Rfam assigns this 140-nucleotide sequence from Rattus norvegicus to the family "Small Cajal body specific RNA 3". Taxonomically the source falls in Rattus (Eukaryota, Metazoa, Eumetazoa, Amniota). Gene Ontology terms of the family: nucleolus, RNA processing and Cajal body. Rfam's curators write: scaRNAs are a specific class of small nuclear RNAs which localise to the Cajal bodies and guide the modification of RNA polymerase II transcribed spliceosomal RNAs U1, U2, U4, U5 and U12.
RNA sequence: AAUGGAAGCUGCAGAGUCAACAUUGUAGACAAAUGAGGAACUAUCUUUUGUCUGCAGAAGGCAGCGAUCCUACAUAAACAUGGAGGUCUCUGUCUGACUUAGGAUAGCUGGCUAAGUCUGAUCGUUCCCCUCCAUACAGU
Numbered sequence: 001a002a003u004g005g006a007a008g009c010u011g012c013a014g015a016g017u018c019a020a021c022a023u024u025g026u027a028g029a030c031a032a033a034u035g036a037g038g039a040a041c042u043a044u045c046u047u048u049u050g051u052c053u054g055c056a057g058a059a060g061g062c063a064g065c066g067a068u069c070c071u072a073c074a075u076a077a078a079c080a081u082g083g084a085g086g087u088c089u090c091u092g093u094c095u096g097a098c099u100u101a102g103g104a105u106a107g108c109u110g111g112c113u114a115a116g117u118c119u120g121a122u123c124g125u126u127c128c129c130c131u132c133c134a135u136a137c138a139g140u
Stems, first nucleotide, its partner, number of pairs: 004070003008065005024056007035047003082133005090124001092122003096118007